[Rfam]
RNA sequence: CCCGUCCUUGUCUCGGGGUGGCACGGGGGACUCGAUGAACGCCUCGUGAGGGCCCCCCUGCUGACACCACAGCGACACAUACGCGUCACCCGAGCUCACGCGAGGGCGAUGACGCAAUUUUUGGAAAA
Numbered sequence: 001c002c003c004g005u006c007c008u009u010g011u012c013u014c015g016g017g018g019u020g021g022c023a024c025g026g027g028g029g030a031c032u033c034g035a036u037g038a039a040c041g042c043c044u045c046g047u048g049a050g051g052g053c054c055c056c057c058c059u060g061c062u063g064a065c066a067c068c069a070c071a072g073c074g075a076c077a078c079a080u081a082c083g084c085g086u087c088a089c090c091c092g093a094g095c096u097c098a099c100g101c102g103a104g105g106g107c108g109a110u111g112a113c114g115c116a117a118u119u120u121u122u123g124g125a126a127a128a
Stems, first nucleotide, its partner, number of pairs: 006018004021061003026056004031052003039047002083115006089106003094101002
A member of the RNA family "U4atac minor spliceosomal RNA" from Liparis tanakae, 128 nucleotides long. The base pairs follow the family's consensus structure, which is taken from published work. Rfam links the family to the GO terms spliceosomal tri-snRNP complex assembly, pre-mRNA 5'-splice site binding and U4atac snRNP. By type it is a spliceosomal small nuclear RNA. The match comes from Rfam's covariance-model search (85 bits).